About this RNA
Purine riboswitch aptamer: a 100-nucleotide sequence from Cohnella herbarum. About the family: Riboswitches are metabolite binding domains within certain messenger RNAs that serve as precision sensors for their corresponding targets. It scores 50 bits against the family's covariance model. Taxonomically the source falls in Cohnella (Bacteria, Bacillati, Caryophanales, Paenibacillaceae).

RNA sequence: UAAUCAUACCUAAACAUUAUUCGUAUAACCUCGUGAAUUCAGGGCGAGGGUCUCUACGGGAAGCCUUAACUUCCAUGCUACGAAUAUGGAAUCAUCGCCU
Numbered sequence: 001u002a003a004u005c006a007u008a009c010c011u012a013a014a015c016a017u018u019a020u021u022c023g024u025a026u027a028a029c030c031u032c033g034u035g036a037a038u039u040c041a042g043g044g045c046g047a048g049g050g051u052c053u054c055u056a057c058g059g060g061a062a063g064c065c066u067u068a069a070c071u072u073c074c075a076u077g078c079u080a081c082g083a084a085u086a087u088g089g090a091a092u093c094a095u096c097g098c099c100u
Base pairs, nucleotide, nucleotide: 018086019085020084021083022082023081024080025079029049030048031047032046033045034044058076059074060073061072062071063070